[Rfam]
RNA sequence: AAUGGGGAUACCGAAAACCAUUAGAAAAGAGUAGGUA
Numbered sequence: 001a002a003u004g005g006g007g008a009u010a011c012c013g014a015a016a017a018c019c020a021u022u023a024g025a026a027a028a029g030a031g032u033a034g035g036u037a
Base pairs, nucleotide, nucleotide: 002021003020004019005018010036011035012034
Shown here is a 37-nucleotide RNA sequence from Chitinophaga agri, a member of the family "DUF805b RNA". It is annotated as a cis-regulatory element. Taxonomically the source falls in Chitinophaga (Bacteria, Pseudomonadati, Bacteroidota, Chitinophagales). The base pairs follow the family's consensus structure, which is taken from published work. Its Rfam clan is "DUF805 clan". The match comes from Rfam's covariance-model search (44 bits).